[Rfam]
RNA: Small nucleolar RNA SNORA15
RNA sequence: GCAUGGCUGAAUACUGUGUUCUUUAGUCAAUAAUUUACACAGCCAGACACCAUGCAAGAGUAAAGUCUUCCUUUAAGAUGACCGAUAUGCUGUAGUUUAUGGUAUAUCACCAUCACAAGUGAGUACAAGU
Numbered sequence: 001g002c003a004u005g006g007c008u009g010a011a012u013a014c015u016g017u018g019u020u021c022u023u024u025a026g027u028c029a030a031u032a033a034u035u036u037a038c039a040c041a042g043c044c045a046g047a048c049a050c051c052a053u054g055c056a057a058g059a060g061u062a063a064a065g066u067c068u069u070c071c072u073u074u075a076a077g078a079u080g081a082c083c084g085a086u087a088u089g090c091u092g093u094a095g096u097u098u099a100u101g102g103u104a105u106a107u108c109a110c111c112a113u114c115a116c117a118a119g120u121g122a123g124u125a126c127a128a129g130u
Base pairs, nucleotide, nucleotide: 001055002054003053004052005051006050014042015041016040017039018038019037068123069122070121071119072118073117074115076113084108085107086106087105088104089103090102091101092100